[Rfam]
RNA: PyrR binding site
RNA sequence: AAACCUUUUAACUAAGUCCUGAGAGGCUUAUAAGGGUGUCAGGCUUGAACCAGACUGAUUGGGAUGGUUUAGGCUAGAUUCAAUGCACCCUGAAGGAAAUUUUCAGGGUGCAUUUUUUAU
Numbered sequence: 001a002a003a004c005c006u007u008u009u010a011a012c013u014a015a016g017u018c019c020u021g022a023g024a025g026g027c028u029u030a031u032a033a034g035g036g037u038g039u040c041a042g043g044c045u046u047g048a049a050c051c052a053g054a055c056u057g058a059u060u061g062g063g064a065u066g067g068u069u070u071a072g073g074c075u076a077g078a079u080u081c082a083a084u085g086c087a088c089c090c091u092g093a094a095g096g097a098a099a100u101u102u103u104c105a106g107g108g109u110g111c112a113u114u115u116u117u118u119a120u
Stems, first nucleotide, its partner, number of pairs: 003037006013030006043074010055062002082114013